[Rfam]
RNA sequence: GCUGGCACAAUGAUGAUUUCCCUUUGCCGUUUACCCAUCUGAAUGUAUGAUGUGAAUUUCUGAAUUCUGAGAUGCCAGU
Numbered sequence: 001g002c003u004g005g006c007a008c009a010a011u012g013a014u015g016a017u018u019u020c021c022c023u024u025u026g027c028c029g030u031u032u033a034c035c036c037a038u039c040u041g042a043a044u045g046u047a048u049g050a051u052g053u054g055a056a057u058u059u060c061u062g063a064a065u066u067c068u069g070a071g072a073u074g075c076c077a078g079u
Stems, first nucleotide, its partner, number of pairs: 001079007
Rfam assigns this 79-nucleotide RNA sequence from Sphenodon punctatus to the family "Small nucleolar RNA SNORD87". It scores 62 bits against the family's covariance model. Rfam links the family to the GO terms nucleolus and RNA processing. NCBI's taxonomy places the organism under Eukaryota, Chordata, Teleostomi, Sphenodontidae, Sphenodon.